[Rfam]
RNA sequence: GCACUGAUGAAAUCAAUCGGUAUUGGUGGUAGGCUUCAAACCUAUCGGUCGUUAAUUCGGCAGCGGUUCAACUCCGCCUUUGGUGC
Number, nucleotide and partner (000 for none) at each position: 001g086002c085003a084004c083005u082006g081007a080008u000009g078010a000011a000012a027013u026014c025015a024016a023017u022018c000019g000020g000021u000022a017023u016024u015025g014026g013027u012028g046029g045030u044031a043032g042033g041034c000035u000036u000037c000038a000039a000040a000041c033042c032043u031044a030045u029046c028047g000048g061049u060050c059051g058052u000053u000054a000055a000056u000057u000058c051059g050060g049061c048062a000063g077064c076065g075066g074067u000068u000069c000070a000071a000072c000073u000074c066075c065076g064077c063078c009079u000080u007081u006082g005083g004084u003085g002086c001
RNA: Selenocysteine transfer RNA